[Rfam]
RNA sequence: GCGCUCCUCACUGGAGAGAGGCGGACCCUGGAGUCCGUCCACCGAAGGGGCAAGCCCGGCCGUGUGAAGCGGCGGGGUCAAUCUCUCAGGUAAAGCGGACAGCGGGGGCAUU
Numbered sequence: 001g002c003g004c005u006c007c008u009c010a011c012u013g014g015a016g017a018g019a020g021g022c023g024g025a026c027c028c029u030g031g032a033g034u035c036c037g038u039c040c041a042c043c044g045a046a047g048g049g050g051c052a053a054g055c056c057c058g059g060c061c062g063u064g065u066g067a068a069g070c071g072g073c074g075g076g077g078u079c080a081a082u083c084u085c086u087c088a089g090g091u092a093a094a095g096c097g098g099a100c101a102g103c104g105g106g107g108g109c110a111u112u
Base pairs, nucleotide, nucleotide: 006107007106008105009104011102012101013100020039021038022037023036024035025034026033041091042090043089044087045086048085049084050083054078055077056076057075
RNA: Glycine riboswitch aptamer